[Rfam]
RNA sequence: CACCAAAGCAUUUAGUCAGGGUGAUACUUAGUACUUUGGUACAAUUCAGAGUAUUACCUGUUACGUCUUUGGAAGAAUAAUACAAUUCGACCUUGUGAACCUAAAGUCUCGGCUUUAGAUUUGGUUACCGUUCUGGUAAUUAGAUUGAAGUUUGCACACUGAAGGAUAGUUCUUAUCCUUUACCACUUAGAGUUGUACCCGGAAUCUUUUUUGAGUUGAAGCUUGUCUGGAUGUUGAAUCCGAAUUCAUGACUUGUUUCUUAGUAAAGAAACCGACAUUA
Numbered sequence: 001c002a003c004c005a006a007a008g009c010a011u012u013u014a015g016u017c018a019g020g021g022u023g024a025u026a027c028u029u030a031g032u033a034c035u036u037u038g039g040u041a042c043a044a045u046u047c048a049g050a051g052u053a054u055u056a057c058c059u060g061u062u063a064c065g066u067c068u069u070u071g072g073a074a075g076a077a078u079a080a081u082a083c084a085a086u087u088c089g090a091c092c093u094u095g096u097g098a099a100c101c102u103a104a105a106g107u108c109u110c111g112g113c114u115u116u117a118g119a120u121u122u123g124g125u126u127a128c129c130g131u132u133c134u135g136g137u138a139a140u141u142a143g144a145u146u147g148a149a150g151u152u153u154g155c156a157c158a159c160u161g162a163a164g165g166a167u168a169g170u171u172c173u174u175a176u177c178c179u180u181u182a183c184c185a186c187u188u189a190g191a192g193u194u195g196u197a198c199c200c201g202g203a204a205u206c207u208u209u210u211u212u213g214a215g216u217u218g219a220a221g222c223u224u225g226u227c228u229g230g231a232u233g234u235u236g237a238a239u240c241c242g243a244a245u246u247c248a249u250g251a252c253u254u255g256u257u258u259c260u261u262a263g264u265a266a267a268g269a270a271a272c273c274g275a276c277a278u279u280a
Stems, first nucleotide, its partner, number of pairs: 003072005019059010031042004083195006094158004163179007200274003205269004218259004225252003229241004

Shown here is a 280-nucleotide RNA from Spathaspora sp. JA1, a member of the family "Small nucleolar RNA snR191".
It is annotated as an H/ACA-box small nucleolar RNA.
Its Rfam clan is "SNORA74 clan".
The match comes from Rfam's covariance-model search (83 bits).